The family of this 74-nucleotide sequence from Crocodylus porosus is "Mammalian CPEB3 ribozyme".
RNA sequence: GGUUGCAAGUUUGAGGCCAUAGCAGAAGUGCUCGUGGCAUGGCUUCUCAGAUUCCAAUGAAUCCGAAUUCUGCC
Numbered sequence: 001g002g003u004u005g006c007a008a009g010u011u012u013g014a015g016g017c018c019a020u021a022g023c024a025g026a027a028g029u030g031c032u033c034g035u036g037g038c039a040u041g042g043c044u045u046c047u048c049a050g051a052u053u054c055c056a057a058u059g060a061a062u063c064c065g066a067a068u069u070c071u072g073c074c
Stems, first nucleotide, its partner, number of pairs: 013046006022073006028040003050063005
The mammalian CPEB3 ribozyme is a self cleaving RNA located in the second intron of the CPEB3 gene which belongs to a family of genes regulating messenger RNA polyadenylation. This ribozyme is highly conserved and found only in mammals. It scores 39 bits against the family's covariance model. The source organism's lineage runs through Eukaryota, Bilateria, Dipnotetrapodomorpha, Tetrapoda and Crocodylus.